[Rfam]
RNA sequence: UGCCCACUGAUGAUACCCAUCCUUGCUCCCCGUGCCCCCCCAGGGCUGUGGGCGACACAGUGGCUCCCCUGGGCUGGCCGGUUGGGCCAUUGCCCGGGGGCUGAGGGCA
Numbered sequence: 001u002g003c004c005c006a007c008u009g010a011u012g013a014u015a016c017c018c019a020u021c022c023u024u025g026c027u028c029c030c031c032g033u034g035c036c037c038c039c040c041c042a043g044g045g046c047u048g049u050g051g052g053c054g055a056c057a058c059a060g061u062g063g064c065u066c067c068c069c070u071g072g073g074c075u076g077g078c079c080g081g082u083u084g085g086g087c088c089a090u091u092g093c094c095c096g097g098g099g100g101c102u103g104a105g106g107g108c109a
Base pairs, nucleotide, nucleotide: 001109002108003107004106005105

The family of this 109-nucleotide RNA sequence from Trichechus manatus is "Small nucleolar RNA SNORD23". The base pairs follow the family's consensus structure. Rfam links the family to the GO terms nucleolus and RNA processing. The family has 15 seed sequences and 153 matches in Rfam 15.1. The organism belongs to Trichechus manatus, within Eukaryota. A reference for the family is Huttenhofer et al. (2001), "RNomics: an experimental approach that identifies 201 candidates for novel, small, non-messenger RNAs in mouse", EMBO J.